[Rfam]
Nucleotides: 149
Stems, first nucleotide, its partner, number of pairs: 002019006028069005033060005039054004044049001085095003096122004105112002124142006
Number, partner (000 for none) and nucleotide at each position: 001000c002019c003018c004017g005016u006015u007014a008000u009000c010000c011000c012000a013000u014007u015006a016005g017004c018003g019002g020000u021000a022000g023000c024000c025000u026000a027000c028069u029068g030067a031066g032065g033060c034059a035058g036057g037056c038000g039054a040053c041052a042051c043000c044049g045000g046000u047000a048000a049044c050000a051042g052041u053040g054039u055000g056037g057036u058035c059034u060033g061000a062000a063000g064000c065032c066031c067030u068029c069028a070000g071000g072000a073000c074000a075000a076000c077000g078000u079000a080000a081000c082000u083000c084000u085095g086094g087093g088000a089000a090000a091000u092000a093087u094086c095085c096122g097121a098120u099119c100000u101000g102000a103000a104000u105112c106111c107000g108000u109000g110000a111106g112105g113000a114000u115000a116000g117000a118000g119099g120098g121097u122096c123000a124142u125141c126140u127139g128138c129137a130000a131000g132000c133000a134000u135000c136000g137129u138128g139127c140126g141125g142124a143000u144000g145000a146000a147000g148000a149000a

Shown here is a 149-nucleotide RNA sequence from Trabulsiella odontotermitis, a member of the family "Group II catalytic intron D1-D4-7". NCBI's taxonomy places the organism under Bacteria, Pseudomonadota, Gammaproteobacteria, Enterobacteriaceae, Trabulsiella. Rfam's curators write: Group II introns are found in rRNA, tRNA and mRNA of organelles in fungi, plants and protists, and also in mRNA in bacteria. A search with the family's covariance model found it, with a score of 118 bits.